RNA sequence: UAUUGAGAUGAUGAUCAUCUUUUCUGAAUCUAUGCUUGUUGACUUAUCAACUCAGACUACAAUUAUCUGAUCAAUG
Numbered sequence: 001u002a003u004u005g006a007g008a009u010g011a012u013g014a015u016c017a018u019c020u021u022u023u024c025u026g027a028a029u030c031u032a033u034g035c036u037u038g039u040u041g042a043c044u045u046a047u048c049a050a051c052u053c054a055g056a057c058u059a060c061a062a063u064u065a066u067c068u069g070a071u072c073a074a075u076g
Base pairs, nucleotide, nucleotide: 001076002075003074004073005072006071
Small nucleolar RNA Z155: a 76-nucleotide RNA from Cucumis sativus. Its family is annotated with RNA processing and nucleolus in the Gene Ontology. The family has 8 seed sequences and 429 matches in Rfam 15.1. A reference for the family is Chen et al. (2003), "The high diversity of snoRNAs in plants: identification and comparative study of 120 snoRNA genes from Oryza sativa", Nucleic Acids Res.